RNA sequence: AUAUACUAGACAAUGUCAGGCGAACCUGCUGAAGAGCCGAUGACUUCGGUGGCAGGGCGUUCCGGAAAGCCACGGUACAUCUUCAGGACAGAUAAACUGGAGAAUGUAACAAACCGUUGCCCAAACAGAGAUGGGAGGGCAGAAGGAUAUACAUUUUCAACGGCAAAGGGACGGCGGGUUCAUAAAGAAUUGAAAAGCAAAAGGCAAGGGGAACGGGAGCGGCAUCCGACAACAGACGGCGGAAGUUCCGCAGUAACCGUGCGGGCCCUGGUUUGAGACCCAGAAGCAGCACGGCAUUCAGGACGGAUGCAUCAGGUUGAGACCUUGAAAAAGGUGUAUAAGCUUUACCCCCUGUUUAACGGGCAAACCCUGGAAAUUUUAAAAAGAUGUCAUUUACACUUAUUUAAAAUCUGAAUGUCGCCCGGAGAUGCAGGUAAAUCCCUGCACAUGCGUAGCAACUCCAAGCACUUGUGUGCGAAGAGCUGGUUGUCCAGGAAGUAUGGAGGUAGCUCCUCCAUGCUCAGACCUGGGCACAUGUUGGCUGAAUAUUGCGGUUCUUAUAUUGGACUUAGGGGGAAGCCCCCGCUUGAUGUCUAUUAAUUC
Numbered sequence: 001a002u003a004u005a006c007u008a009g010a011c012a013a014u015g016u017c018a019g020g021c022g023a024a025c026c027u028g029c030u031g032a033a034g035a036g037c038c039g040a041u042g043a044c045u046u047c048g049g050u051g052g053c054a055g056g057g058c059g060u061u062c063c064g065g066a067a068a069g070c071c072a073c074g075g076u077a078c079a080u081c082u083u084c085a086g087g088a089c090a091g092a093u094a095a096a097c098u099g100g101a102g103a104a105u106g107u108a109a110c111a112a113a114c115c116g117u118u119g120c121c122c123a124a125a126c127a128g129a130g131a132u133g134g135g136a137g138g139g140c141a142g143a144a145g146g147a148u149a150u151a152c153a154u155u156u157u158c159a160a161c162g163g164c165a166a167a168g169g170g171a172c173g174g175c176g177g178g179u180u181c182a183u184a185a186a187g188a189a190u191u192g193a194a195a196a197g198c199a200a201a202a203g204g205c206a207a208g209g210g211g212a213a214c215g216g217g218a219g220c221g222g223c224a225u226c227c228g229a230c231a232a233c234a235g236a237c238g239g240c241g242g243a244a245g246u247u248c249c250g251c252a253g254u255a256a257c258c259g260u261g262c263g264g265g266c267c268c269u270g271g272u273u274u275g276a277g278a279c280c281c282a283g284a285a286g287c288a289g290c291a292c293g294g295c296a297u298u299c300a301g302g303a304c305g306g307a308u309g310c311a312u313c314a315g316g317u318u319g320a321g322a323c324c325u326u327g328a329a330a331a332a333g334g335u336g337u338a339u340a341a342g343c344u345u346u347a348c349c350c351c352c353u354g355u356u357u358a359a360c361g362g363g364c365a366a367a368c369c370c371u372g373g374a375a376a377u378u379u380u381a382a383a384a385a386g387a388u389g390u391c392a393u394u395u396a397c398a399c400u401u402a403u404u405u406a407a408a409a410u411c412u413g414a415a416u417g418u419c420g421c422c423c424g425g426a427g428a429u430g431c432a433g434g435u436a437a438a439u440c441c442c443u444g445c446a447c448a449u450g451c452g453u454a455g456c457a458a459c460u461c462c463a464a465g466c467a468c469u470u471g472u473g474u475g476c477g478a479a480g481a482g483c484u485g486g487u488u489g490u491c492c493a494g495g496a497a498g499u500a501u502g503g504a505g506g507u508a509g510c511u512c513c514u515c516c517a518u519g520c521u522c523a524g525a526c527c528u529g530g531g532c533a534c535a536u537g538u539u540g541g542c543u544g545a546a547u548a549u550u551g552c553g554g555u556u557c558u559u560a561u562a563u564u565g566g567a568c569u570u571a572g573g574g575g576g577a578a579g580c581c582c583c584c585g586c587u588u589g590a591u592g593u594c595u596a597u598u599a600a601u602u603c
Base pairs, nucleotide, nucleotide: 007600009598010597012595019588020587025056026055027054028053029052036050037049038048039047040046058173059172060171061170062169063168073116074115075114076111080103081102082101083100084099087098117142118141119140120139121138122137126133127132145158146157147156149154180567181566183562184561200550203549204543207353208352209351210350215349216348218346219345221344222343223309224308225307226306227305228304239251240250241249242248257294258293259292260291261290262289265287266286268283269282270281274300275299276298277297312373313372314371315370316369322335323334324333325332326331357427360424361423362422363421364420410525411524412523413522433443434442447537448536449535491531492530494528495527498521500518501517502516503515504514505513506512572583573582574581575580

The family of this 603-nucleotide RNA sequence is "ROOL RNA". Rfam's curators write: Firmicutes, Fusobacteria (1 example), Tenericutes (1 example).